[Rfam]
The family of this 156-nucleotide RNA from Paenibacillus sp. FSL H7-0331 is "PyrR binding site". Rfam classes the family as a cis-regulatory element. Its family is annotated with pyrimidine nucleobase biosynthetic process and pyrimidine nucleobase transport in the Gene Ontology. The family has 41 seed sequences and 1,498 matches in Rfam 15.1. Rfam describes the family as follows. This family represents the PyrR binding site and terminator structure. This RNA structure is found upstream of a variety of genes involved in pyrimidine biosynthesis and transport. The alignment also includes a portion of the antiterminator structure.
RNA sequence: AGCACCUUUAAACUCAGUCCAGAGAGACUGGCAAGGUGAACGAAUGGAAACAACGGCUAUUAGGCACUAAUGGGUCAGUCUCAUUAUGAAGUCUACUAACGUCCGUUAUCUCCGUAUGUCCGCAAACCUUGCCCUAACGAGCAAGGUUUUUUAUUU
Numbered sequence: 001a002g003c004a005c006c007u008u009u010a011a012a013c014u015c016a017g018u019c020c021a022g023a024g025a026g027a028c029u030g031g032c033a034a035g036g037u038g039a040a041c042g043a044a045u046g047g048a049a050a051c052a053a054c055g056g057c058u059a060u061u062a063g064g065c066a067c068u069a070a071u072g073g074g075u076c077a078g079u080c081u082c083a084u085u086a087u088g089a090a091g092u093c094u095a096c097u098a099a100c101g102u103c104c105g106u107u108a109u110c111u112c113c114g115u116a117u118g119u120c121c122g123c124a125a126a127c128c129u130u131g132c133c134c135u136a137a138c139g140a141g142c143a144a145g146g147u148u149u150u151u152u153a154u155u156u
Stems, first nucleotide, its partner, number of pairs: 003038006014031006045114004050109001052107001055106001122151001124149009134139001